About this RNA: SAM riboswitch aptamer (S box leader): a 112-nucleotide RNA sequence from Thalassobacillus cyri. About the family: The SAM riboswitch is found upstream of a number of genes which code for proteins involved in methionine or cysteine biosynthesis in Gram-positive bacteria. A search with the family's covariance model found it, with a score of 98 bits. Rfam links the family to the GO term regulation of gene expression.

[Rfam]
RNA sequence: CUCUUAUUAAGAGAGGCGGAGGGACUGGCCCGAUGAAGCCCGGCAACCGUCAAGCGAUUAUGCUUGAAAAGGUGCCAAUUCCUGCAGAGUAAUCAACUCUGACAGAUAAGAG
Numbered sequence: 001c002u003c004u005u006a007u008u009a010a011g012a013g014a015g016g017c018g019g020a021g022g023g024a025c026u027g028g029c030c031c032g033a034u035g036a037a038g039c040c041c042g043g044c045a046a047c048c049g050u051c052a053a054g055c056g057a058u059u060a061u062g063c064u065u066g067a068a069a070a071g072g073u074g075c076c077a078a079u080u081c082c083u084g085c086a087g088a089g090u091a092a093u094c095a096a097c098u099c100u101g102a103c104a105g106a107u108a109a110g111a112g
Stems, first nucleotide, its partner, number of pairs: 001112008013041001015040003021031003025084001027082002042076004047072002050067005080104001085101006